Clostridiales-1 RNA: a 154-nucleotide RNA sequence from Anaerobium acetethylicum. Pairs were carried over by alignment from the consensus structure, which is taken from published work. It is annotated as a small RNA. NCBI's taxonomy places the organism under Bacteria, Bacillota, Clostridia, Lachnospirales, Anaerobium.

RNA sequence: UGAUACCAGGGUCAAAAGGUCAUGUGUUUCAUGCUUGCAUGAAAAAACAUGACUUUGAGACCCACAAAACAUGAGAAAGUAGCCCGAAUAGGGCGGAUUUUGAAUGUUUUUAGGAUUGUGAGAGCACAAAGUGCGUAACAAUCCGUAGGUAUCA
Numbered sequence: 001u002g003a004u005a006c007c008a009g010g011g012u013c014a015a016a017a018g019g020u021c022a023u024g025u026g027u028u029u030c031a032u033g034c035u036u037g038c039a040u041g042a043a044a045a046a047a048c049a050u051g052a053c054u055u056u057g058a059g060a061c062c063c064a065c066a067a068a069a070c071a072u073g074a075g076a077a078a079g080u081a082g083c084c085c086g087a088a089u090a091g092g093g094c095g096g097a098u099u100u101u102g103a104a105u106g107u108u109u110u111u112a113g114g115a116u117u118g119u120g121a122g123a124g125c126a127c128a129a130a131g132u133g134c135g136u137a138a139c140a141a142u143c144c145g146u147a148g149g150u151a152u153c154a
Stems, first nucleotide, its partner, number of pairs: 001154007010062004016056010027045002029042005066110007075101004082094004113144007124134004